Rfam assigns this 100-nucleotide sequence from Paenibacillus curdlanolyticus to the family "Purine riboswitch aptamer". About the family: Riboswitches are metabolite binding domains within certain messenger RNAs that serve as precision sensors for their corresponding targets. The family's consensus secondary structure is taken from published work.
RNA sequence: CGACAAACAAAUAACCAAUUUCGUAUAAUCUCAAGAAUUGGCUUGAGAGUCUCUACAAGAUCACCGUAAUGAUCUGGCUACGAAAAGACAGGGAUAAUUU
Numbered sequence: 001c002g003a004c005a006a007a008c009a010a011a012u013a014a015c016c017a018a019u020u021u022c023g024u025a026u027a028a029u030c031u032c033a034a035g036a037a038u039u040g041g042c043u044u045g046a047g048a049g050u051c052u053c054u055a056c057a058a059g060a061u062c063a064c065c066g067u068a069a070u071g072a073u074c075u076g077g078c079u080a081c082g083a084a085a086a087g088a089c090a091g092g093g094a095u096a097a098u099u100u
Stems, first nucleotide, its partner, number of pairs: 019085007029048007058075006